A member of the RNA family "SAM riboswitch aptamer (S box leader)" from Natronincola ferrireducens, 105 nucleotides long. A search with the family's covariance model found it, with a score of 92 bits. The organism belongs to Natronincola, within Bacteria.
[Rfam]
RNA sequence: CUCUUAUAAAGAGUGGCGGAGGGACUGGCCCUAUGAAGCCCGGCAACCAGCAUACUAUGUGCAUGGUGCUAAAUCCUGUAGGUAUAUUUACCUAAGAGAUGAGAG
Numbered sequence: 001c002u003c004u005u006a007u008a009a010a011g012a013g014u015g016g017c018g019g020a021g022g023g024a025c026u027g028g029c030c031c032u033a034u035g036a037a038g039c040c041c042g043g044c045a046a047c048c049a050g051c052a053u054a055c056u057a058u059g060u061g062c063a064u065g066g067u068g069c070u071a072a073a074u075c076c077u078g079u080a081g082g083u084a085u086a087u088u089u090a091c092c093u094a095a096g097a098g099a100u101g102a103g104a105g
Stems, first nucleotide, its partner, number of pairs: 001105007013041001015040003021031003025078001027076002042070004047066002050062003074097001079094006